[Rfam]
RNA sequence: UAACCGUUACCGGAAGGUAACGCUGAACGUACAGAAGUCAGCAGAGGCCACAGUAGCUGGAAGUUUUUUUUUCGGCGAAGGGC
Numbered sequence: 001u002a003a004c005c006g007u008u009a010c011c012g013g014a015a016g017g018u019a020a021c022g023c024u025g026a027a028c029g030u031a032c033a034g035a036a037g038u039c040a041g042c043a044g045a046g047g048c049c050a051c052a053g054u055a056g057c058u059g060g061a062a063g064u065u066u067u068u069u070u071u072u073c074g075g076c077g078a079a080g081g082g083c
Base pairs, nucleotide, nucleotide: 001025002024005022006021007020008019009018010017011016038045039044047083048082049081056076057075058074059073060072061071